A member of the RNA family "permuted transfer-messenger RNA" from Candidatus Orientia mediorientalis, 259 nucleotides long. The base pairs follow the family's consensus structure, which is taken from published work. A search with the family's covariance model found it, with a score of 134 bits. By type it is a non-coding RNA gene.
RNA sequence: GGCAAUAAAUCUUAUUAAAAAUAGAGGCAGUGGACCCGGGGGCAGUACUCGGCACCUCCACCAGAAUAAAGCAAUGUUUUUAUGGGGGUGAAAAAGUUUCGACACACCUAGUAAAAUAAUAAAUUUUGCUCGAUAUGAUUCCGUCGUUUUAGGCAAUGUUUAAAUAAAGUAUUGUUUAAAUGGGUCAAAAAGAAGAAAUGCAAACGAUAACGAGCUUUCUUCAGAUGUUGGUUUACCUAAGCUUGCAUUAGCAGCUUAA
Numbered sequence: 001g002g003c004a005a006u007a008a009a010u011c012u013u014a015u016u017a018a019a020a021a022u023a024g025a026g027g028c029a030g031u032g033g034a035c036c037c038g039g040g041g042g043c044a045g046u047a048c049u050c051g052g053c054a055c056c057u058c059c060a061c062c063a064g065a066a067u068a069a070a071g072c073a074a075u076g077u078u079u080u081u082a083u084g085g086g087g088g089u090g091a092a093a094a095a096g097u098u099u100c101g102a103c104a105c106a107c108c109u110a111g112u113a114a115a116a117u118a119a120u121a122a123a124u125u126u127u128g129c130u131c132g133a134u135a136u137g138a139u140u141c142c143g144u145c146g147u148u149u150u151a152g153g154c155a156a157u158g159u160u161u162a163a164a165u166a167a168a169g170u171a172u173u174g175u176u177u178a179a180a181u182g183g184g185u186c187a188a189a190a191a192g193a194a195g196a197a198a199u200g201c202a203a204a205c206g207a208u209a210a211c212g213a214g215c216u217u218u219c220u221u222c223a224g225a226u227g228u229u230g231g232u233u234u235a236c237c238u239a240a241g242c243u244u245g246c247a248u249u250a251g252c253a254g255c256u257u258a259a
Base pairs, nucleotide, nucleotide: 001130002129003128004127005126014120015119016118017117026108027107030105031104032103036052037051038050039049040048053090054089055088056087057086058085059084131146132145133144134143